[Rfam]
RNA sequence: AGAAGUCCCGCAGGGGCGACAUGAGAUCACAUGCAACGCAUUGCCUAAUGCCUAUACAUUUGGUGUGGUGGGAGUGUUUGUGUUUAUGUGUGUUCUCAGGUCGCCCCUGUGGGAUUUCU
Numbered sequence: 001a002g003a004a005g006u007c008c009c010g011c012a013g014g015g016g017c018g019a020c021a022u023g024a025g026a027u028c029a030c031a032u033g034c035a036a037c038g039c040a041u042u043g044c045c046u047a048a049u050g051c052c053u054a055u056a057c058a059u060u061u062g063g064u065g066u067g068g069u070g071g072g073a074g075u076g077u078u079u080g081u082g083u084u085u086a087u088g089u090g091u092g093u094u095c096u097c098a099g100g101u102c103g104c105c106c107c108u109g110u111g112g113g114a115u116u117u118c119u
Base pairs, nucleotide, nucleotide: 007113008112011109012108013107014106016104017103018102019101023097024096025095026094028092029091030090031089032088